A member of the RNA family "c-di-GMP-I-GGC riboswitch aptamer" from Nitrosomonas aestuarii, 77 nucleotides long.
[Rfam]
RNA sequence: AAAGACAAAGGCAUACUCAUCGUGAGGUGAGGACGCAAAGCUUCCGGUCUAGCAAAUAGAUAGCGGGGUUACCAAAA
Numbered sequence: 001a002a003a004g005a006c007a008a009a010g011g012c013a014u015a016c017u018c019a020u021c022g023u024g025a026g027g028u029g030a031g032g033a034c035g036c037a038a039a040g041c042u043u044c045c046g047g048u049c050u051a052g053c054a055a056a057u058a059g060a061u062a063g064c065g066g067g068g069u070u071a072c073c074a075a076a077a
Stems, first nucleotide, its partner, number of pairs: 004073001011036002016031006034063001039070004044066003047061003
It scores 61 bits against the family's covariance model.